[Rfam]
Nucleotides: 139
Stems, first nucleotide, its partner, number of pairs: 005137001007135002089107005
Number, partner (000 for none) and nucleotide at each position: 001000g002000c003000g004000g005137u006000c007135g008134a009000u010000g011000a012000c013000a014000a015000c016000g017000a018000u019000c020000u021000a022000a023000u024000c025000a026000g027000c028000u029000a030000u031000a032000u033000c034000a035000u036000u037000g038000u039000c040000g041000g042000c043000c044000u045000u046000g047000a048000u049000g050000a051000c052000g053000a054000c055000u056000u057000c058000g059000a060000a061000c062000c063000a064000g065000u066000c067000a068000u069000c070000a071000u072000g073000g074000c075000a076000c077000u078000a079000g080000u081000g082000g083000c084000c085000c086000g087000u088000c089107c090106c091105g092104a093103u094000c095000c096000a097000a098000u099000u100000a101000c102000u103093a104092u105091u106090g107089g108000a109000g110000a111000a112000g113000u114000u115000u116000u117000u118000g119000c120000u121000c122000a123000g124000c125000u126000a127000u128000u129000a130000a131000g132000c133000u134008u135007u136000a137005a138000g139000c

Rfam assigns this 139-nucleotide sequence from Oryza meyeriana to the family "Small nucleolar RNA Z247". For this family Rfam cites "The high diversity of snoRNAs in plants: identification and comparative study of 120 snoRNA genes from Oryza sativa" (Chen et al., Nucleic Acids Res, 2003). The family's consensus secondary structure was predicted with PFOLD. NCBI's taxonomy places the organism under Eukaryota, Viridiplantae, Streptophytina, Petrosaviidae, Oryza meyeriana.